Shown here is a 264-nucleotide RNA sequence from Luteitalea sp., a member of the family "Group II catalytic intron D1-D4-6".
The source organism's lineage runs through Bacteria, Acidobacteriota, Vicinamibacterales, Vicinamibacteraceae and Luteitalea.
On this family, see Bonen and Vogel, Trends Genet 2001: "The ins and outs of group II introns".

RNA sequence: GGAGCCCACCCCUAUGAACCGCUGAGCAAUAGGGUAGCUGGGUCCCCUGCGUGACGUCGUGAGGCGUCCAGCAGAAGCGGGACCUGCAUGCCGCCCGCUGGCAAGCGGGCGGUUGCGAAGCCGCGGGCCGUCGCGCGUAGCGAACUCAGAUGUAACCUCGUGAGAAGUCGAGGAGGCCGAGCCUCUACAAAGUGGGCGAAGGCAGCACGCCUCGGGAAGGUGCUCAGCCGAUGCACCGAGGCACUCCUCCGGGGUAGCAGGGAC
Numbered sequence: 001g002g003a004g005c006c007c008a009c010c011c012c013u014a015u016g017a018a019c020c021g022c023u024g025a026g027c028a029a030u031a032g033g034g035u036a037g038c039u040g041g042g043u044c045c046c047c048u049g050c051g052u053g054a055c056g057u058c059g060u061g062a063g064g065c066g067u068c069c070a071g072c073a074g075a076a077g078c079g080g081g082a083c084c085u086g087c088a089u090g091c092c093g094c095c096c097g098c099u100g101g102c103a104a105g106c107g108g109g110c111g112g113u114u115g116c117g118a119a120g121c122c123g124c125g126g127g128c129c130g131u132c133g134c135g136c137g138u139a140g141c142g143a144a145c146u147c148a149g150a151u152g153u154a155a156c157c158u159c160g161u162g163a164g165a166a167g168u169c170g171a172g173g174a175g176g177c178c179g180a181g182c183c184u185c186u187a188c189a190a191a192g193u194g195g196g197c198g199a200a201g202g203c204a205g206c207a208c209g210c211c212u213c214g215g216g217a218a219g220g221u222g223c224u225c226a227g228c229c230g231a232u233g234c235a236c237c238g239a240g241g242c243a244c245u246c247c248u249c250c251g252g253g254g255u256a257g258c259a260g261g262g263a264c
Stems, first nucleotide, its partner, number of pairs: 011033005037087002041084004045079001047074004052070001053068006152258001153256001155255006170249006176203003181197004209242007
Its family is annotated with Group II intron splicing in the Gene Ontology.